About this RNA
nqrA-II ncRNA motif: a 190-nucleotide RNA sequence from Pasteurella felis. On this family, see Narunsky et al., Nucleic Acids Res 2024: "The discovery of novel noncoding RNAs in 50 bacterial genomes". The family's RNA type in Rfam is cis-regulatory element. Rfam links the family to the GO term regulation of gene expression. Taxonomically the source falls in Pasteurella (Bacteria, Pseudomonadati, Gammaproteobacteria, Pasteurellaceae). The match comes from Rfam's covariance-model search (59 bits).

[Rfam]
RNA sequence: UCAAUUUGUCUGUUGGCAAAGGGCAAUGUGAACCGAAUUUGAGUUUUUAUACAUAUGAUCUGGCGGCGUUUAGAAUGUUGUCUGUACAACAAGUCUUCGUCGCCUUUUGAUCAUCGCUCAAGACGAGGUUACGGCAAUUUUUGCUGUAACUAUAUUUUUAAUCUAACUAAAAGUAGUGCAAACAAUAUGA
Numbered sequence: 001u002c003a004a005u006u007u008g009u010c011u012g013u014u015g016g017c018a019a020a021g022g023g024c025a026a027u028g029u030g031a032a033c034c035g036a037a038u039u040u041g042a043g044u045u046u047u048u049a050u051a052c053a054u055a056u057g058a059u060c061u062g063g064c065g066g067c068g069u070u071u072a073g074a075a076u077g078u079u080g081u082c083u084g085u086a087c088a089a090c091a092a093g094u095c096u097u098c099g100u101c102g103c104c105u106u107u108u109g110a111u112c113a114u115c116g117c118u119c120a121a122g123a124c125g126a127g128g129u130u131a132c133g134g135c136a137a138u139u140u141u142u143g144c145u146g147u148a149a150c151u152a153u154a155u156u157u158u159u160a161a162u163c164u165a166a167c168u169a170a171a172a173g174u175a176g177u178g179c180a181a182a183c184a185a186u187a188u189g190a
Base pairs, nucleotide, nucleotide: 002030003029006026007025008024009023010022011021013019039121040120041119042118043117055114056113057112058111059110062104063103064102065101066100067099068098125179127151128150129149130148131147132146133145134144135143136142137141154174155173156172157171158170159169